[Rfam]
About this RNA: serC leader: a 52-nucleotide sequence from Rhodobacter capsulatus. Rfam classes the family as a cis-regulatory leader.
Nucleotides: 052
Base pairs, nucleotide, nucleotide: 011028012027013026014025015024016023032047033046034045035044036043037042
Number, partner (000 for none) and nucleotide at each position: 001000c002000g003000g004000c005000g006000g007000g008000a009000c010000a011028c012027c013026c014025u015024u016023c017000c018000c019000c020000a021000a022000c023016g024015a025014a026013g027012g028011g029000c030000g031000u032047u033046u034045a035044u036043c037042u038000g039000g040000a041000a042037g043036g044035a045034u046033a047032g048000c049000g050000a051000c052000a
A reference for the family is Corbino et al. (2005), "Evidence for a second class of S-adenosylmethionine riboswitches and other regulatory RNA motifs in alpha-proteobacteria", Genome Biol. Lineage of the source: Bacteria > Pseudomonadota > Alphaproteobacteria > Rhodobacter > Rhodobacter capsulatus. This family is a putative regulatory RNA structure that is found upstream of the serC-serA operon in some alpha-proteobacteria. The final stem of the structure overlaps the ribosome binding site of the serC reading frame. Its family is annotated with regulation of gene expression in the Gene Ontology.